[Rfam]
RNA sequence: UUCUUAUCCAGAGAGAUGGAGGGACUAGGCCCAAUGAUAUCUCGGCAACAGAUUCAUUUAUGAAAACUGUGCCAAUUCCUACAAGUGCGAUAUGCAUUUGAAAGAUGAGAA
Numbered sequence: 001u002u003c004u005u006a007u008c009c010a011g012a013g014a015g016a017u018g019g020a021g022g023g024a025c026u027a028g029g030c031c032c033a034a035u036g037a038u039a040u041c042u043c044g045g046c047a048a049c050a051g052a053u054u055c056a057u058u059u060a061u062g063a064a065a066a067c068u069g070u071g072c073c074a075a076u077u078c079c080u081a082c083a084a085g086u087g088c089g090a091u092a093u094g095c096a097u098u099u100g101a102a103a104g105a106u107g108a109g110a111a
Stems, first nucleotide, its partner, number of pairs: 001111008013043005021032003026081004044073004049069002053063002077103001082100006
Overview
Shown here is a 111-nucleotide RNA from Amphibacillus xylanus, a member of the family "SAM riboswitch aptamer (S box leader)". Gene Ontology term of the family: regulation of gene expression. The family's consensus secondary structure is taken from published work. It scores 91 bits against the family's covariance model. Lineage of the source: Bacteria > Caryophanales > Bacillaceae > Amphibacillus > Amphibacillus xylanus.